[Rfam]
RNA sequence: AUGAAGGAAAUGCAAUCGAUGGGUCUUGAAAAGGAUGGCAACUGGAGUGAAGAGUUUUCUCGGUCUCCUCCAAAAUUCAGACAGUUUUGUCUGUUUUUGGCCACCAGCUCUUUCUAACCCCCCAGCUUGGCGCAUGAAGAAGCAUCUCCUCCAAAUCUAGCAGAGGUGCGGGCUAAUGCCAAGCAAACCGGCAAGUCACAGAUCGGCAAUGGACUCGGUUCUUAUCGAGUCUU
Numbered sequence: 001a002u003g004a005a006g007g008a009a010a011u012g013c014a015a016u017c018g019a020u021g022g023g024u025c026u027u028g029a030a031a032a033g034g035a036u037g038g039c040a041a042c043u044g045g046a047g048u049g050a051a052g053a054g055u056u057u058u059c060u061c062g063g064u065c066u067c068c069u070c071c072a073a074a075a076u077u078c079a080g081a082c083a084g085u086u087u088u089g090u091c092u093g094u095u096u097u098u099g100g101c102c103a104c105c106a107g108c109u110c111u112u113u114c115u116a117a118c119c120c121c122c123c124a125g126c127u128u129g130g131c132g133c134a135u136g137a138a139g140a141a142g143c144a145u146c147u148c149c150u151c152c153a154a155a156u157c158u159a160g161c162a163g164a165g166g167u168g169c170g171g172g173c174u175a176a177u178g179c180c181a182a183g184c185a186a187a188c189c190g191g192c193a194a195g196u197c198a199c200a201g202a203u204c205g206g207c208a209a210u211g212g213a214c215u216c217g218g219u220u221c222u223u224a225u226c227g228a229g230u231c232u233u
Stems, first nucleotide, its partner, number of pairs: 044071003084188004102178002212231007
The family of this 233-nucleotide sequence from Nyssa sinensis is "Early nodulin 40". The literature on the family includes a 2007 paper in Nucleic Acids Res by Gultyaev and Roussis, "Identification of conserved secondary structures and expansion segments in enod40 RNAs reveals new enod40 homologues in plants". Rfam links the family to the GO term nodulation. Rfam 15.1 lists 341 matches to the family in 193 species.